[Rfam]
RNA sequence: GUUUUGCGUUAGGGAUAGUAGUGGUAUCCUUUUUUACUUUUUUGUAAAAAAGAUGUAACGGAUAGCCCGCCCUUUU
Numbered sequence: 001g002u003u004u005u006g007c008g009u010u011a012g013g014g015a016u017a018g019u020a021g022u023g024g025u026a027u028c029c030u031u032u033u034u035u036a037c038u039u040u041u042u043u044g045u046a047a048a049a050a051a052g053a054u055g056u057a058a059c060g061g062a063u064a065g066c067c068c069g070c071c072c073u074u075u076u
Stems, first nucleotide, its partner, number of pairs: 012068003016064002021059002026054003032049006
RNA: Flavo-1 RNA
Organism: Polaribacter atrinae